A member of the RNA family "Small nucleolar RNA SNORD16" from Apaloderma vittatum, 100 nucleotides long. The family is grouped with related families in Rfam's "SNORD16 clan". Rfam 15.1 lists 1,321 matches to the family in 655 species. The literature on the family includes a 1993 paper in EMBO J by Fragapane et al., "A novel small nucleolar RNA (U16) is encoded inside a ribosomal protein intron and originates by processing of the pre-mRNA". Rfam links the family to the GO terms RNA processing and nucleolus. The match comes from Rfam's covariance-model search (100 bits).

RNA sequence: UGCCAUGAUGUCGUAAUUUGCGUCUUACUCUGUGCUCAGUGACAGUUGCCUGCUGUCGGUGUGCUGGUACAGGAGCUUGACGAACAGUUAACGCUGAGCA
Numbered sequence: 001u002g003c004c005a006u007g008a009u010g011u012c013g014u015a016a017u018u019u020g021c022g023u024c025u026u027a028c029u030c031u032g033u034g035c036u037c038a039g040u041g042a043c044a045g046u047u048g049c050c051u052g053c054u055g056u057c058g059g060u061g062u063g064c065u066g067g068u069a070c071a072g073g074a075g076c077u078u079g080a081c082g083a084a085c086a087g088u089u090a091a092c093g094c095u096g097a098g099c100a
Base pairs, nucleotide, nucleotide: 001100002099003098021082022081023080024079030072031071032070033069034068039064040063041057042056043055044054045053